[Rfam]
RNA sequence: GACCAGUGAAUCUUGGCACUGGGAGAAUUCACAGUUCAUUUGAUUUCUGUGGAUCUUUUUGUGCCAAAGUUUAACGAUC
Dot-bracket structure: ...(..((((..((((((..(((.((..((((((............)))))).))).))..))))))..))))..)...